[Rfam]
Notes:
This 91-nucleotide RNA sequence from Cannabis sativa belongs to the Rfam family "Small nucleolar RNA snoR26".
RNA sequence: AGAGCAUCAGUGAUGAGUCCAUAUAAAUGUUAUCCUUGCACUUUGAUUGUCAGUGAAGAAUCUAAUGGGGAAUUUUUUCUCUGAGGUGCUC
Numbered sequence: 001a002g003a004g005c006a007u008c009a010g011u012g013a014u015g016a017g018u019c020c021a022u023a024u025a026a027a028u029g030u031u032a033u034c035c036u037u038g039c040a041c042u043u044u045g046a047u048u049g050u051c052a053g054u055g056a057a058g059a060a061u062c063u064a065a066u067g068g069g070g071a072a073u074u075u076u077u078u079c080u081c082u083g084a085g086g087u088g089c090u091c
Base pairs, nucleotide, nucleotide: 002091003090004089005088006087007086008085

Rfam classes the family as a C/D-box small nucleolar RNA. For this family Rfam cites "Multiple snoRNA gene clusters from Arabidopsis" (Brown et al., RNA, 2001).